Shown here is a 74-nucleotide RNA from Xanthomonas phage Xoo-sp13, a member of the family "tRNA". The base pairs follow the family's consensus structure, which is taken from published work. Transfer RNA (tRNA) molecules are approximately 80 nucleotides in length. Their secondary structure includes four short double-helical elements and three loops (D, anti-codon, and T loops). Further hydrogen bonds mediate the characteristic L-shaped molecular structure. tRNAs have two regions of fundamental functional importance: the anti-codon, which is responsible for specific mRNA codon recognition, and the 3' end, to which the tRNAs corresponding amino acid is attached (by aminoacyl-tRNA synthetases). tRNAs cope with the degeneracy of the genetic code in two manners: having more than one tRNA (with a specific anti-codon) for a particular amino acid; and 'wobble' base-pairing, i.e. permitting non-standard base-pairing at the 3rd anti-codon position. Rfam classes the family as a transfer RNA. The literature on the family includes a 1993 paper in Trends Biochem Sci by Hou, "The tertiary structure of tRNA and the development of the genetic code". A search with the family's covariance model found it, with a score of 64 bits.
RNA sequence: GGGUACCUAGCUCAAUCCGGCAGAGCAUUCGCCUCCAAAGCGAACGGUUGGGGGUUCGAUUCCCUCGGUGCCCG
Numbered sequence: 001g002g003g004u005a006c007c008u009a010g011c012u013c014a015a016u017c018c019g020g021c022a023g024a025g026c027a028u029u030c031g032c033c034u035c036c037a038a039a040g041c042g043a044a045c046g047g048u049u050g051g052g053g054g055u056u057c058g059a060u061u062c063c064c065u066c067g068g069u070g071c072c073c074g
Base pairs, nucleotide, nucleotide: 001073002072003071004070005069006068007067010026011025012024013023028044029043030042031041032040050066051065052064053063054062